[Rfam]
RNA sequence: UCAUAAUGAUGAUUUCACUUAUACCUAUAUGUUUUUUCUGGCAUCUCUAAUGUUAGGAUGUGAAGUUUAAGUACUCUCCAUUCAAUGAAUACAAUUUUUGACAAUAUCUGAUU
Numbered sequence: 001u002c003a004u005a006a007u008g009a010u011g012a013u014u015u016c017a018c019u020u021a022u023a024c025c026u027a028u029a030u031g032u033u034u035u036u037u038c039u040g041g042c043a044u045c046u047c048u049a050a051u052g053u054u055a056g057g058a059u060g061u062g063a064a065g066u067u068u069a070a071g072u073a074c075u076c077u078c079c080a081u082u083c084a085a086u087g088a089a090u091a092c093a094a095u096u097u098u099u100g101a102c103a104a105u106a107u108c109u110g111a112u113u
Base pairs, nucleotide, nucleotide: 057082058081059080060079